[Rfam]
RNA sequence: UGCGAGUUUGAGGACCAAGCAGAAGCACUCAUGGUGUGUCCUGUCAGAUUCCAAUGAAUCAGUGAAUUCUGCU
Dot-bracket structure: ...........[[[[..((((((((((.......)))]]]]...(.(((((....))))).)....)))))))